[Rfam]
RNA sequence: CCUGUCAUCGACAGGCCGGGAUGUGACCCACGCGGGUUGAACCACCUG
Numbered sequence: 001c002c003u004g005u006c007a008u009c010g011a012c013a014g015g016c017c018g019g020g021a022u023g024u025g026a027c028c029c030a031c032g033c034g035g036g037u038u039g040a041a042c043c044a045c046c047u048g
Stems, first nucleotide, its partner, number of pairs: 001015005018043002025038005
This 48-nucleotide RNA sequence belongs to the Rfam family "eL15-Euryarchaeota ribosomal protein leader". It is one of the family's seed sequences.